Background:
tRNA: a 73-nucleotide RNA from Qipengyuania pelagi. The family's RNA type in Rfam is transfer RNA. Pairs were carried over by alignment from the consensus structure, which is taken from published work.

[Rfam]
RNA sequence: GCCUCGGUAGCUCAGUUGGUAGAGCACACGAUUGAAAAUCGUGGUGUCGGUGGUUCGAAUCCGCCCCGAGGCA
Numbered sequence: 001g002c003c004u005c006g007g008u009a010g011c012u013c014a015g016u017u018g019g020u021a022g023a024g025c026a027c028a029c030g031a032u033u034g035a036a037a038a039u040c041g042u043g044g045u046g047u048c049g050g051u052g053g054u055u056c057g058a059a060u061c062c063g064c065c066c067c068g069a070g071g072c073a
Stems, first nucleotide, its partner, number of pairs: 001072007010025004027043005049065005
Dot-bracket structure: (((((((..((((........)))).(((((.......))))).....(((((.......)))))))))))).